[Rfam]
RNA sequence: UCGCAUCCGCCAACCGGUAAAGCCGUGCCGCGGAGGGUUUUCCAACCAGCUCAGGCUCCCUGCAGGGGAGCGGAAAGUAGCG
Numbered sequence: 001u002c003g004c005a006u007c008c009g010c011c012a013a014c015c016g017g018u019a020a021a022g023c024c025g026u027g028c029c030g031c032g033g034a035g036g037g038u039u040u041u042c043c044a045a046c047c048a049g050c051u052c053a054g055g056c057u058c059c060c061u062g063c064a065g066g067g068g069a070g071c072g073g074a075a076a077g078u079a080g081c082g
Stems, first nucleotide, its partner, number of pairs: 002082003006034005015025004036047004049078003055071007